Notes:
Shown here is a 90-nucleotide sequence from Granulicatella elegans, a member of the family "TPP riboswitch aptamer (THI element)". About the family: Vitamin B(1) in its active form thiamin pyrophosphate (TPP) is an essential coenzyme that is synthesised by coupling of pyrimidine and thiazole moieties in bacteria. The organism belongs to Granulicatella elegans, within Bacteria.
[Rfam]
RNA sequence: CCAAAACAUUUGGGGUGCCAAUUGGCUGAGAUUAUACCCAUUGAACCUGAUCUGGAUAGUACCAGCGAAGGGAAAUGUGGAAUGUUACGA
Numbered sequence: 001c002c003a004a005a006a007c008a009u010u011u012g013g014g015g016u017g018c019c020a021a022u023u024g025g026c027u028g029a030g031a032u033u034a035u036a037c038c039c040a041u042u043g044a045a046c047c048u049g050a051u052c053u054g055g056a057u058a059g060u061a062c063c064a065g066c067g068a069a070g071g072g073a074a075a076u077g078u079g080g081a082a083u084g085u086u087a088c089g090a
Base pairs, nucleotide, nucleotide: 006078007077008076009075010074011040012039013038014037016034017026018025019024046071047070048069052065053064054063055062